A member of the RNA family "rmf RNA" from Pseudomonas fluvialis, 130 nucleotides long. The family's consensus secondary structure is taken from published work. By type it is a cis-regulatory element. NCBI's taxonomy places the organism under Bacteria, Gammaproteobacteria, Pseudomonadales, Pseudomonadaceae, Pseudomonas.
Nucleotides: 130
Base pairs, nucleotide, nucleotide: 021039022038023037025035026034027033046069048067049066050065051064052063075092076091077090078089079088094110095109096108097107098106
Number, partner (000 for none) and nucleotide at each position: 001000u002000u003000g004000g005000u006000u007000a008000g009000a010000a011000c012000u013000c014000u015000a016000g017000c018000a019000a020000c021039c022038g023037u024000a025035a026034c027033c028000g029000c030000a031000a032000a033027g034026g035025u036000a037023a038022c039021g040000g041000c042000a043000g044000g045000a046069a047000c048067c049066u050065c051064g052063c053000c054000a055000c056000g057000c058000c059000g060000g061000c062000a063052g064051c065050g066049a067048g068000c069046u070000c071000c072000g073000u074000g075092g076091g077090c078089a079088g080000c081000g082000a083000c084000c085000a086000u087000u088079c089078u090077g091076c092075c093000c094110g095109g096108c097107c098106c099000c100000a101000g102000c103000a104000g105000c106098g107097g108096g109095c110094c111000a112000c113000c114000g115000g116000g117000a118000c119000a120000u121000a122000a123000c124000a125000g126000u127000c128000a129000a130000c